[Rfam]
This 68-nucleotide RNA from Eudromia elegans belongs to the Rfam family "mir-33 microRNA precursor family". Rfam 15.1 lists 1,467 matches to the family in 815 species. A reference for the family is Li et al. (2009), "Direct sequencing and expression analysis of a large number of miRNAs in Aedes aegypti and a multi-species survey of novel mosquito miRNAs", BMC Genomics. Lineage of the source: Eukaryota > Saurischia > Theropoda > Aves > Eudromia. Rfam links the family to the GO terms gene silencing by miRNA and RISC complex.

RNA sequence: CUGUGGUGCAUUGUAGUUGCAUUGCAUGUCAGCCAGCAACUGUGCAAUGUUUCUGCAGUGCAGUACAG
Numbered sequence: 001c002u003g004u005g006g007u008g009c010a011u012u013g014u015a016g017u018u019g020c021a022u023u024g025c026a027u028g029u030c031a032g033c034c035a036g037c038a039a040c041u042g043u044g045c046a047a048u049g050u051u052u053c054u055g056c057a058g059u060g061c062a063g064u065a066c067a068g
Base pairs, nucleotide, nucleotide: 001068002067003066004065006064007062008061009060010059011058012057013056014055015054016053019050021048022047023046024045025044026043027042